[Rfam]
RNA sequence: UAGUAGAUGCACCCUGAUGUUUGCCCCAGGCGAUAAGCCUGGGGUUUUUCUUU
Numbered sequence: 001u002a003g004u005a006g007a008u009g010c011a012c013c014c015u016g017a018u019g020u021u022u023g024c025c026c027c028a029g030g031c032g033a034u035a036a037g038c039c040u041g042g043g044g045u046u047u048u049u050c051u052u053u
Stems, first nucleotide, its partner, number of pairs: 003012002023045009
The record is a 53-nucleotide RNA sequence from Trichocoleus sp. FACHB-832, which matches "Nitrogen stress-induced RNA 1" in Rfam. The base pairs follow the family's consensus structure. Rfam 15.1 lists 962 matches to the family in 163 species.